[Rfam]
RNA sequence: GUCGUUUCGCAUUUACCCGUCAACACAAAGAAUGGUACCAUUCAUACGACACACGGGUGGGAAAUUCGGUGAUACUCUCCAUUCAAUUUACAUGCUCUUGAGAGCUUUACCUUAACGUGAAAACGGUUGGACGAUGUUACAAGAAAUUUAACAAACUUUCAGAGUAAAAUUUGAAAUUUUGUAUGGGAAUGGCAUCGCGAAUGGUUGGCUCUUGGUACGAAUCAAGAAGCUGUUUAGUGCAAUAUUGCGAACUAGAAAUAGCACCCGAUACCGAUCAUCGAC
Numbered sequence: 001g002u003c004g005u006u007u008c009g010c011a012u013u014u015a016c017c018c019g020u021c022a023a024c025a026c027a028a029a030g031a032a033u034g035g036u037a038c039c040a041u042u043c044a045u046a047c048g049a050c051a052c053a054c055g056g057g058u059g060g061g062a063a064a065u066u067c068g069g070u071g072a073u074a075c076u077c078u079c080c081a082u083u084c085a086a087u088u089u090a091c092a093u094g095c096u097c098u099u100g101a102g103a104g105c106u107u108u109a110c111c112u113u114a115a116c117g118u119g120a121a122a123a124c125g126g127u128u129g130g131a132c133g134a135u136g137u138u139a140c141a142a143g144a145a146a147u148u149u150a151a152c153a154a155a156c157u158u159u160c161a162g163a164g165u166a167a168a169a170u171u172u173g174a175a176a177u178u179u180u181g182u183a184u185g186g187g188a189a190u191g192g193c194a195u196c197g198c199g200a201a202u203g204g205u206u207g208g209c210u211c212u213u214g215g216u217a218c219g220a221a222u223c224a225a226g227a228a229g230c231u232g233u234u235u236a237g238u239g240c241a242a243u244a245u246u247g248c249g250a251a252c253u254a255g256a257a258a259u260a261g262c263a264c265c266c267g268a269u270a271c272c273g274a275u276c277a278u279c280g281a282c
Base pairs, nucleotide, nucleotide: 001282002281003280004279006251007250008249009248011245012244015058016057017056018055019054030043031042032041033040034039067273068272069271070270071269081202082201083200084199094105095104096103097102107122108121110119112117132197133196134195135194136193137192138191151182152181153180154179155178252261253260254259
RNA: Nuclear RNase P
Organism: Insectozyma verbasci